A member of the RNA family "Small nucleolar RNA SNORD45" from Pantherophis guttatus, 80 nucleotides long. The match comes from Rfam's covariance-model search (58 bits). Rfam links the family to the GO terms nucleolus and RNA processing.
RNA sequence: GGUCAGUGAUGAAAUAAUGUUUAUCUGAAUCUGUAGUUGAUGUGGUUUAACACUCAGCUCUAGAAUUACUCUGAGACCUG
Numbered sequence: 001g002g003u004c005a006g007u008g009a010u011g012a013a014a015u016a017a018u019g020u021u022u023a024u025c026u027g028a029a030u031c032u033g034u035a036g037u038u039g040a041u042g043u044g045g046u047u048u049a050a051c052a053c054u055c056a057g058c059u060c061u062a063g064a065a066u067u068a069c070u071c072u073g074a075g076a077c078c079u080g
Base pairs, nucleotide, nucleotide: 001078002077003076004075
Lineage of the source: Eukaryota > Gnathostomata > Squamata > Colubridae > Pantherophis. The literature on the family includes a 1996 paper in Cell by Kiss-Laszlo et al., "Site-specific ribose methylation of preribosomal RNA: a novel function for small nucleolar RNAs".